[Rfam]
RNA sequence: AACGACCGGCUGGUCACUUGCGUGUCCGGCCCACAAGUGGAGGCUCCCCGCUCCCACCUCCCGAUCCCCCGGGUCGGCAGGUCAUCGGUCAGGCUGCGCCCCGCGGUGAUAUCGCGGCGGUGCUCCCGGUCAAUGAGGAGCCCCGCCUGUGUACCGUCCGGGGCGUUUUGU
Numbered sequence: 001a002a003c004g005a006c007c008g009g010c011u012g013g014u015c016a017c018u019u020g021c022g023u024g025u026c027c028g029g030c031c032c033a034c035a036a037g038u039g040g041a042g043g044c045u046c047c048c049c050g051c052u053c054c055c056a057c058c059u060c061c062c063g064a065u066c067c068c069c070c071g072g073g074u075c076g077g078c079a080g081g082u083c084a085u086c087g088g089u090c091a092g093g094c095u096g097c098g099c100c101c102c103g104c105g106g107u108g109a110u111a112u113c114g115c116g117g118c119g120g121u122g123c124u125c126c127c128g129g130u131c132a133a134u135g136a137g138g139a140g141c142c143c144c145g146c147c148u149g150u151g152u153a154c155c156g157u158c159c160g161g162g163g164c165g166u167u168u169u170g171u
Stems, first nucleotide, its partner, number of pairs: 004090006012027002028083004035059001037057004041052002061077007098164006104156003114150002116147005122141005

Background: The family of this 171-nucleotide RNA sequence from Streptomyces malaysiensis is "Streptomyces RNA 1601". The organism belongs to Streptomyces, within Bacteria. A reference for the family is Vockenhuber et al. (2011), "Deep sequencing-based identification of small non-coding RNAs in Streptomyces coelicolor", RNA Biol. By type it is a small RNA. Identified by deep sequencing of transcriptome at the end of exponential growth phase. Appears longer on northern blot than sequencing transcript. A search with the family's covariance model found it, with a score of 114 bits.